Overview: The record is a 139-nucleotide sequence from Muraenolepis orangiensis, which matches "Small nucleolar RNA SNORD94" in Rfam. The organism belongs to Muraenolepis, within Eukaryota. Its family is annotated with RNA processing and nucleolus in the Gene Ontology. The match comes from Rfam's covariance-model search (62 bits).
[Rfam]
RNA sequence: UUUGCCAUGAUGAGACGCGCAGGGGUACGGACCCCAGCCAGGGAUGGUGGCUGGGUGCUGGCCUGGGUCCUCUGUCAGCGGGCAUGUGGCUUACUGACAGGAGAUGGGUCGGCACGAUACAGACGCUAGUCUGAGCAAA
Numbered sequence: 001u002u003u004g005c006c007a008u009g010a011u012g013a014g015a016c017g018c019g020c021a022g023g024g025g026u027a028c029g030g031a032c033c034c035c036a037g038c039c040a041g042g043g044a045u046g047g048u049g050g051c052u053g054g055g056u057g058c059u060g061g062c063c064u065g066g067g068u069c070c071u072c073u074g075u076c077a078g079c080g081g082g083c084a085u086g087u088g089g090c091u092u093a094c095u096g097a098c099a100g101g102a103g104a105u106g107g108g109u110c111g112g113c114a115c116g117a118u119a120c121a122g123a124c125g126c127u128a129g130u131c132u133g134a135g136c137a138a139a
Stems, first nucleotide, its partner, number of pairs: 001139005